[Rfam]
RNA sequence: GCGAGGUGACGAUAUAAUUCAUGUCUGUCAAUCCCCUGAUUGUUUGUGAUGUUAAAAGUGAAUCCCGACAGGUUCUGAUCGC
Numbered sequence: 001g002c003g004a005g006g007u008g009a010c011g012a013u014a015u016a017a018u019u020c021a022u023g024u025c026u027g028u029c030a031a032u033c034c035c036c037u038g039a040u041u042g043u044u045u046g047u048g049a050u051g052u053u054a055a056a057a058g059u060g061a062a063u064c065c066c067g068a069c070a071g072g073u074u075c076u077g078a079u080c081g082c
Stems, first nucleotide, its partner, number of pairs: 001082004
Overview:
The family of this 82-nucleotide sequence from Salvia splendens is "Small nucleolar RNA snoR14". For this family Rfam cites "Multiple snoRNA gene clusters from Arabidopsis" (Brown et al., RNA, 2001). NCBI's taxonomy places the organism under Eukaryota, Spermatophyta, Nepetoideae, Salvia, core Calosphace. Pairs were carried over by alignment from the consensus structure. Gene Ontology terms of the family: RNA processing and nucleolus.